[Rfam]
RNA sequence: CUCUUAUCAAGAGUGGCGGAGGGACUGGCCCUAUGAUGCCCGGCAACCGAUAGCGUAAGCUAUAAGGUGCUAAUUCCAGCAGAACCUUAGGUUCUGAGAGAUGAGAG
Numbered sequence: 001c002u003c004u005u006a007u008c009a010a011g012a013g014u015g016g017c018g019g020a021g022g023g024a025c026u027g028g029c030c031c032u033a034u035g036a037u038g039c040c041c042g043g044c045a046a047c048c049g050a051u052a053g054c055g056u057a058a059g060c061u062a063u064a065a066g067g068u069g070c071u072a073a074u075u076c077c078a079g080c081a082g083a084a085c086c087u088u089a090g091g092u093u094c095u096g097a098g099a100g101a102u103g104a105g106a107g
Stems, first nucleotide, its partner, number of pairs: 001107008013041001015040003021031003025079004042071004047067002050063004075099001080096006

The record is a 107-nucleotide RNA sequence from Desulfosporosinus sp. HMP52, which matches "SAM riboswitch aptamer (S box leader)" in Rfam. The organism belongs to Desulfosporosinus, within Bacteria.